[Rfam]
RNA sequence: CCGCCCGGUCGGCGACGUUGCGGGCCCUGGGCGCCGGAGAGCUUCCCGGAGCCGACCUUCCUGCUGGCUGCUCUGUGAUCGCUUCCUGGCUCUGCUUUCUUGGCCGAAGUCCCCGCUGCUGGGCGCGGGCCUGAGGUAACACUGGU
Numbered sequence: 001c002c003g004c005c006c007g008g009u010c011g012g013c014g015a016c017g018u019u020g021c022g023g024g025c026c027c028u029g030g031g032c033g034c035c036g037g038a039g040a041g042c043u044u045c046c047c048g049g050a051g052c053c054g055a056c057c058u059u060c061c062u063g064c065u066g067g068c069u070g071c072u073c074u075g076u077g078a079u080c081g082c083u084u085c086c087u088g089g090c091u092c093u094g095c096u097u098u099c100u101u102g103g104c105c106g107a108a109g110u111c112c113c114c115g116c117u118g119c120u121g122g123g124c125g126c127g128g129g130c131c132u133g134a135g136g137u138a139a140c141a142c143u144g145g146u
Stems, first nucleotide, its partner, number of pairs: 013017001034089002036086003040083003044078002047075005053070002056067002102131004109126002112123004

The record is a 146-nucleotide sequence from Sapajus apella, which matches "Human acetyl-coA cholesterol acyltransferase mRNA" in Rfam. A reference for the family is Chen et al. (2008), "RNA secondary structures located in the interchromosomal region of human ACAT1 chimeric mRNA are required to produce the 56-kDa isoform", Cell Res. By type it is a cis-regulatory element. Taxonomically the source falls in Sapajus (Eukaryota, Metazoa, Bilateria, Gnathostomata). The family has 8 seed sequences and 107 matches in Rfam 15.1.